RNA sequence: UGGAGAGGUUGCUAUUGGUAGAGCAAAUCGUUUGCUAAACGAUCGAGGUUUAAUCACCUCUGUGGGUUCAACUCCCACUCUCUCCG
Numbered sequence: 001u002g003g004a005g006a007g008g009u010u011g012c013u014a015u016u017g018g019u020a021g022a023g024c025a026a027a028u029c030g031u032u033u034g035c036u037a038a039a040c041g042a043u044c045g046a047g048g049u050u051u052a053a054u055c056a057c058c059u060c061u062g063u064g065g066g067u068u069c070a071a072c073u074c075c076c077a078c079u080c081u082c083u084c085c086g
Stems, first nucleotide, its partner, number of pairs: 001086007008078001010025004015020001027043005047059002050056001063077004
Background
A member of the RNA family "Selenocysteine transfer RNA" from Leptolyngbya sp. NIES-3755, 86 nucleotides long. The family has 109 seed sequences and 4,211 matches in Rfam 15.1.